Record summary:
The record is a 107-nucleotide RNA sequence from Tepidicella xavieri, which matches "Group II catalytic intron D1-D4-1" in Rfam. The organism belongs to Tepidicella, within Bacteria. From the family's description: Group II introns are found in rRNA, tRNA and mRNA of organelles in fungi, plants and protists, and also in mRNA in bacteria. Rfam 15.1 lists 2,508 matches to the family in 1,144 species. A search with the family's covariance model found it, with a score of 39 bits.
RNA sequence: CGCCGUGUGCCUGAAAGGGCGACGGCUGUGUGCCGGAGCGAGAAGUCAGCAGAGGUCGUAGUAGCUGGAGCCGGGGCCGAUGAGGCCACAAGACAAGAGCGAAGGAC
Numbered sequence: 001c002g003c004c005g006u007g008u009g010c011c012u013g014a015a016a017g018g019g020c021g022a023c024g025g026c027u028g029u030g031u032g033c034c035g036g037a038g039c040g041a042g043a044a045g046u047c048a049g050c051a052g053a054g055g056u057c058g059u060a061g062u063a064g065c066u067g068g069a070g071c072c073g074g075g076g077c078c079g080a081u082g083a084g085g086c087c088a089c090a091a092g093a094c095a096a097g098a099g100c101g102a103a104g105g106a107c
Stems, first nucleotide, its partner, number of pairs: 001028002004024003008021005046053002055107003064100003